[Rfam]
Shown here is a 139-nucleotide RNA from Methylobacterium nodulans, a member of the family "ALIL pseudoknot". The family's consensus secondary structure is taken from published work. NCBI's taxonomy places the organism under Bacteria, Pseudomonadota, Alphaproteobacteria, Methylobacteriaceae, Methylobacterium nodulans. Rfam links the family to the GO term positive regulation of translational frameshifting. The family's RNA type in Rfam is cis-regulatory element. It scores 68 bits against the family's covariance model. Rfam 15.1 lists 2,146 matches to the family in 1,098 species.

RNA sequence: CGCGUCUUGUGCGAUGGCGGAGCUCGACCGCCGGUCGCGGCCAUGAUCGCCUUCAUCGACGAGUACCGCGCGGUCUACGGGGUUGUCCUUCGACAGGCUCAGGAUGAGGCCGAUCUGCAGAGUUCUGCCGAUCGCCCCG
Dot-bracket structure: ...............(((((.......))))).............................................(((((....(..(((.(((............................))).)))..))))))